RNA: chrB-b RNA
RNA sequence: CCGGGGAACGCAGACUCCCGGCAUUCCCAAGACGGUGAUCCGUCCAAGUUCUGC
Numbered sequence: 001c002c003g004g005g006g007a008a009c010g011c012a013g014a015c016u017c018c019c020g021g022c023a024u025u026c027c028c029a030a031g032a033c034g035g036u037g038a039u040c041c042g043u044c045c046a047a048g049u050u051c052u053g054c
Base pairs, nucleotide, nucleotide: 001021002020003019004018005017006016010054011053012052013051014050031044032043033042034041035040